The record is a 458-nucleotide sequence from Granulicella rosea, which matches "Bacterial RNase P class A" in Rfam. Gene Ontology terms of the family: tRNA processing, ribonuclease P activity and dimeric ribonuclease P complex. The family's RNA type in Rfam is ribozyme.
RNA sequence: GCAGGCGGCCGGACGAUCGCUGCCGUGUUGUCCGCAAGGACUUUCACGGGGGAGGAAAGUCCGAACUCCGCAGGGCAGUGUGCCGGAUAACGUCCGGGACGGAUGCUUCAAGGCAUCUGGACGGCCAGUGCAACAGAGAGCGAACCGCCUCUUCGACCGCAAGGGAGAAGAGGUAAGGGUGAAAAGGUGCGGUAAGAGCGCACCGGGCGCUGCGUAAGCAACGCCGCAUGGUAAACCCCACACGGAGCAAGACCAAAUAGGCAGGGAGUGUGGCUGCACGUCCUCAUGCAGCCAGUGCGUAUCGGCCCGAUGCGCCCAGACGAGGAUAGUCCGCUUCUAAGCGAAAGCCGGAGCGGGCAGUCGAAACCUGCGGGUAGGUUGCUGGAGCCAGUCAGUAAUGGCUGGCCUAGAGGAAUGAUCGUCUAAAACAAAAUUCGGCUUACGGGCCGUCUGCAAAC
Numbered sequence: 001g002c003a004g005g006c007g008g009c010c011g012g013a014c015g016a017u018c019g020c021u022g023c024c025g026u027g028u029u030g031u032c033c034g035c036a037a038g039g040a041c042u043u044u045c046a047c048g049g050g051g052g053a054g055g056a057a058a059g060u061c062c063g064a065a066c067u068c069c070g071c072a073g074g075g076c077a078g079u080g081u082g083c084c085g086g087a088u089a090a091c092g093u094c095c096g097g098g099a100c101g102g103a104u105g106c107u108u109c110a111a112g113g114c115a116u117c118u119g120g121a122c123g124g125c126c127a128g129u130g131c132a133a134c135a136g137a138g139a140g141c142g143a144a145c146c147g148c149c150u151c152u153u154c155g156a157c158c159g160c161a162a163g164g165g166a167g168a169a170g171a172g173g174u175a176a177g178g179g180u181g182a183a184a185a186g187g188u189g190c191g192g193u194a195a196g197a198g199c200g201c202a203c204c205g206g207g208c209g210c211u212g213c214g215u216a217a218g219c220a221a222c223g224c225c226g227c228a229u230g231g232u233a234a235a236c237c238c239c240a241c242a243c244g245g246a247g248c249a250a251g252a253c254c255a256a257a258u259a260g261g262c263a264g265g266g267a268g269u270g271u272g273g274c275u276g277c278a279c280g281u282c283c284u285c286a287u288g289c290a291g292c293c294a295g296u297g298c299g300u301a302u303c304g305g306c307c308c309g310a311u312g313c314g315c316c317c318a319g320a321c322g323a324g325g326a327u328a329g330u331c332c333g334c335u336u337c338u339a340a341g342c343g344a345a346a347g348c349c350g351g352a353g354c355g356g357g358c359a360g361u362c363g364a365a366a367c368c369u370g371c372g373g374g375u376a377g378g379u380u381g382c383u384g385g386a387g388c389c390a391g392u393c394a395g396u397a398a399u400g401g402c403u404g405g406c407c408u409a410g411a412g413g414a415a416u417g418a419u420c421g422u423c424u425a426a427a428a429c430a431a432a433a434u435u436c437g438g439c440u441u442a443c444g445g446g447c448c449g450u451c452u453g454c455a456a457a458c
Stems, first nucleotide, its partner, number of pairs: 001454010011443001012423007020052002023049005057441003061438005066247004078243005083097005098122001100119008123238002128236002130232002145178002147174008186204006205227001206225004211220003251380004261371005387406008